[Rfam]
RNA sequence: UACUGUGUAUGAUGAGAAAAUUUUCCAAAUCAGUUAUCCCUGGCUGAUUUUCGUUAUGAUGACAUCUUGUGAUCUGACACAGAC
Numbered sequence: 001u002a003c004u005g006u007g008u009a010u011g012a013u014g015a016g017a018a019a020a021u022u023u024u025c026c027a028a029a030u031c032a033g034u035u036a037u038c039c040c041u042g043g044c045u046g047a048u049u050u051u052c053g054u055u056a057u058g059a060u061g062a063c064a065u066c067u068u069g070u071g072a073u074c075u076g077a078c079a080c081a082g083a084c
Stems, first nucleotide, its partner, number of pairs: 003082005
A member of the RNA family "Small nucleolar RNA R38" from Theobroma umbraticum, 84 nucleotides long. About the family: snoR38 is a C/D box small nucleolar RNA conserved across yeast, human, Arabidopsis and rice. It is encoded in the intron of elongation factor-1 gamma in both pombe and cerevisiae. snoR38 guides the methylation of 2'-O-ribose sites in 28S rRNA. It is annotated as a C/D-box small nucleolar RNA. The match comes from Rfam's covariance-model search (56 bits). The family's consensus secondary structure was predicted with PFOLD. The organism belongs to Theobroma, within Eukaryota.